Rfam assigns this 57-nucleotide RNA from Mikania micrantha to the family "Plastid-ccsA-ndhD-1 3UTR RNA". The literature on the family includes a 2023 paper in Plant Commun by Richter et al., "Retrograde signaling in plants: A critical review focusing on the GUN pathway and beyond". A search with the family's covariance model found it, with a score of 68 bits. From the family's description: Plastid-ccsA-ndhD-1 is a non-coding RNA (ncRNA) recognised in plastids. It was found in the three prime untranslated region (3UTR) of ccsA and ndhD genes, its 3UTR location suggests a role in transcript maturation. Clan: Plastid-ccsA_ndhD 3UTR RNA clan.
RNA sequence: CAUUCGGCGAGAACCAUGUGAAUCAAGUAGUAUAGUGAUUCACGCGGUUCUCACAAA
Numbered sequence: 001c002a003u004u005c006g007g008c009g010a011g012a013a014c015c016a017u018g019u020g021a022a023u024c025a026a027g028u029a030g031u032a033u034a035g036u037g038a039u040u041c042a043c044g045c046g047g048u049u050c051u052c053a054c055a056a057a
Base pairs, nucleotide, nucleotide: 007054009052010051011050012049013048014047015046017044018043019042020041021040022039023038024037025036
Rfam classes the family as a cis-regulatory element. NCBI's taxonomy places the organism under Eukaryota, Euphyllophyta, campanulids, Asteraceae, Mikania.